Rfam assigns this 345-nucleotide RNA sequence from Fusarium duplospermum to the family "Nuclear RNase P".
Rfam links the family to the GO terms ribonuclease P complex, tRNA processing and ribonuclease P activity.
By type it is a ribozyme.
The organism belongs to Fusarium solani species complex, within Eukaryota.
The literature on the family includes a 1999 paper in Nucleic Acids Res by Brown, "The Ribonuclease P Database".
From the family's description: Ribonuclease P (RNase P) is a ubiquitous endoribonuclease, found in archaea, bacteria and eukarya as well as chloroplasts and mitochondria.
The family is grouped with related families in Rfam's "RNaseP clan".
It scores 51 bits against the family's covariance model.

[Rfam]
RNA sequence: UCCCCAACGCUGCGUUUCCAUGCUACAAACAGAGAGACUUCUUCACGGAAGCCUCUCAACCCUUUUCUUCGGAACUGGGACAACAAGCAUGUGGGAAAUUCGGAGUACUGCCUCAAACACCACCUCCGCCCCCUGCCUUUUGGCCGGGGACGCGGACGGUCUGCCGGUAACGGCCUGGCGUCAAUCGACGCUUGCAAACGACAUCAGAAAUCUCGGAGCCGUUCUUUGAAACGUGUUCUCCAUGGGAAGUCGUUGCGAGGCUUGUUUGGAGAAAACUGAAGUGCGAUACGCAGCGUCCUUUUUGCCUUCUGGGCGAGGAUGACUCAAUUCCGAUCACUCUGGGGA
Number, nucleotide and partner (000 for none) at each position: 001u345002c344003c343004c342005c341006a340007a000008c000009g294010c293011u292012g291013c290014g289015u288016u000017u000018c000019c091020a090021u089022g088023c000024u000025a000026c000027a000028a000029a000030c000031a000032g057033a056034g055035a054036g053037a000038c000039u000040u000041c000042u000043u000044c000045a000046c000047g000048g000049a000050a000051g000052c000053c036054u035055c034056u033057c032058a000059a000060c000061c000062c000063u000064u000065u000066u000067c000068u000069u000070c000071g000072g000073a000074a000075c000076u000077g000078g000079g000080a000081c000082a000083a000084c000085a000086a000087g000088c022089a021090u020091g019092u000093g000094g000095g000096a000097a000098a000099u000100u000101c332102g331103g330104a329105g328106u000107a000108c000109u000110g000111c260112c259113u258114c257115a000116a000117a000118c000119a000120c000121c000122a000123c000124c000125u000126c000127c000128g000129c000130c000131c000132c000133c000134u000135g000136c000137c000138u000139u000140u000141u000142g000143g000144c000145c000146g000147g000148g000149g000150a000151c000152g000153c000154g000155g000156a000157c000158g000159g000160u000161c000162u000163g174164c173165c172166g171167g000168u000169a000170a000171c166172g165173g164174c163175c000176u000177g192178g191179c190180g189181u188182c000183a000184a000185u000186c000187g000188a181189c180190g179191c178192u177193u000194g000195c000196a000197a254198a253199c252200g251201a250202c249203a000204u000205c000206a000207g000208a000209a000210a000211u000212c000213u000214c000215g241216g240217a239218g000219c000220c000221g000222u000223u000224c000225u000226u000227u000228g000229a000230a000231a000232c000233g000234u000235g000236u000237u000238c000239u217240c216241c215242a000243u000244g000245g000246g000247a000248a000249g202250u201251c200252g199253u198254u197255g000256c000257g114258a113259g112260g111261c000262u000263u000264g000265u000266u000267u000268g000269g000270a000271g000272a000273a000274a000275a000276c000277u000278g000279a000280a000281g000282u000283g000284c000285g000286a000287u000288a015289c014290g013291c012292a011293g010294c009295g320296u319297c318298c317299u316300u315301u000302u000303u000304g000305c000306c000307u000308u000309c000310u000311g000312g000313g000314c000315g300316a299317g298318g297319a296320u295321g000322a000323c000324u000325c000326a000327a000328u105329u104330c103331c102332g101333a000334u000335c000336a000337c000338u000339c000340u006341g005342g004343g003344g002345a001